[Rfam]
RNA sequence: CUGGUGUGAAAGACAUGGGUAGUGAGAUGUGACAGUUGACCACCAUCUCACUACCUUGUCUUUGACGCCAUG
Dot-bracket structure: ........(((((((.(((.(((((((((..............))))))))).)))))))))).........
RNA: mir-71 microRNA precursor family